This 67-nucleotide RNA from Trichonephila inaurata belongs to the Rfam family "mir-2 microRNA precursor family". Rfam links the family to the GO terms RISC complex and miRNA-mediated post-transcriptional gene silencing. For this family Rfam cites "An extensive class of small RNAs in Caenorhabditis elegans" (Lee and Ambros, Science, 2001). The match comes from Rfam's covariance-model search (46 bits). NCBI's taxonomy places the organism under Eukaryota, Metazoa, Ecdysozoa, Araneae, Trichonephila inaurata.

RNA sequence: UUGCACGUCAAGAUGGUUGUGAAAUGUUUCAAUAAGAUCAUAUCACAGCUAUCUUAGACGCGUGAAG
Numbered sequence: 001u002u003g004c005a006c007g008u009c010a011a012g013a014u015g016g017u018u019g020u021g022a023a024a025u026g027u028u029u030c031a032a033u034a035a036g037a038u039c040a041u042a043u044c045a046c047a048g049c050u051a052u053c054u055u056a057g058a059c060g061c062g063u064g065a066a067g
Stems, first nucleotide, its partner, number of pairs: 006060004010055013025042003